[Rfam]
RNA sequence: ACCAAGAGUGCGUGUACGGACUCUGUCCGAGGAGGAUGAGCUGGUGUACUUCCCCGACAUCAGAACCCUUCCUCGGACAGGGCCCUAUACGCACUCGCUUUUCUA
Dot-bracket structure: .........(((((((.((.(((((((((((((((..(..(((((((.........)))))))..).))))))))))))))).))))))))).............
The record is a 105-nucleotide RNA sequence from Corynebacterium aurimucosum, which matches "mraW RNA" in Rfam. It is annotated as a cis-regulatory element. Lineage of the source: Bacteria > Actinomycetota > Actinomycetes > Corynebacterium > Corynebacterium aurimucosum. It scores 64 bits against the family's covariance model. The family's consensus secondary structure is taken from published work.